The family of this 130-nucleotide RNA sequence from Caenorhabditis angaria is "C. elegans snoRNA ceN100". Rfam 15.1 lists 23 matches to the family in 11 species. The source organism's lineage runs through Eukaryota, Metazoa, Protostomia, Rhabditina and Caenorhabditis. It is annotated as an H/ACA-box small nucleolar RNA.
RNA sequence: UUCCGAAGUCCAGAGUCACCUUUUUUGCUAGAGUACGAUUGAGGUGCUAGGAUUGUUCGAAAAUAAAAAUGGUAUAAUAUGCAAAUAGAGCUUGGUUUACCCUCCUCUAUUUCACCUCAAUCCAUAACAU
Numbered sequence: 001u002u003c004c005g006a007a008g009u010c011c012a013g014a015g016u017c018a019c020c021u022u023u024u025u026u027g028c029u030a031g032a033g034u035a036c037g038a039u040u041g042a043g044g045u046g047c048u049a050g051g052a053u054u055g056u057u058c059g060a061a062a063a064u065a066a067a068a069a070u071g072g073u074a075u076a077a078u079a080u081g082c083a084a085a086u087a088g089a090g091c092u093u094g095g096u097u098u099a100c101c102c103u104c105c106u107c108u109a110u111u112u113c114a115c116c117u118c119a120a121u122c123c124a125u126a127a128c129a130u
Base pairs, nucleotide, nucleotide: 004059005058006057007056008053009052010051011050014048015047017046018045019044020043021042022041025038027036069125070124071123075119080114081113083112084111085110086109088107089106090105094102095101